[Rfam]
RNA: mir-216 microRNA precursor family
Organism: Mytilus galloprovincialis
RNA sequence: UGGUAGCAUAAUCUCAGCUGGUAAAUCUGAGUUGACCUUUGAUCUCAAGUUACUAGCCGAGAUUAUGUUAACU
Numbered sequence: 001u002g003g004u005a006g007c008a009u010a011a012u013c014u015c016a017g018c019u020g021g022u023a024a025a026u027c028u029g030a031g032u033u034g035a036c037c038u039u040u041g042a043u044c045u046c047a048a049g050u051u052a053c054u055a056g057c058c059g060a061g062a063u064u065a066u067g068u069u070a071a072c073u
Stems, first nucleotide, its partner, number of pairs: 004070004009065007017057001021054001023051002026049001028047004